[Rfam]
RNA sequence: AUAUACUAUUUAAAUAACUCUUGUAUAAGCCCAUUAAUUUGGUUUGGGCGUUUCUACAGGCAACCGUAAAUUGCCCCAGGCUACAAGAGGUACUGUCCGACUG
Numbered sequence: 001a002u003a004u005a006c007u008a009u010u011u012a013a014a015u016a017a018c019u020c021u022u023g024u025a026u027a028a029g030c031c032c033a034u035u036a037a038u039u040u041g042g043u044u045u046g047g048g049c050g051u052u053u054c055u056a057c058a059g060g061c062a063a064c065c066g067u068a069a070a071u072u073g074c075c076c077c078a079g080g081c082u083a084c085a086a087g088a089g090g091u092a093c094u095g096u097c098c099g100a101c102u103g
Stems, first nucleotide, its partner, number of pairs: 018089008029049005059075005
Shown here is a 103-nucleotide RNA sequence from Paenibacillus monticola, a member of the family "Purine riboswitch aptamer". The family's consensus secondary structure is taken from published work. The source organism's lineage runs through Bacteria, Bacillati, Bacilli, Paenibacillaceae and Paenibacillus. The match comes from Rfam's covariance-model search (64 bits). Riboswitches are metabolite binding domains within certain messenger RNAs that serve as precision sensors for their corresponding targets.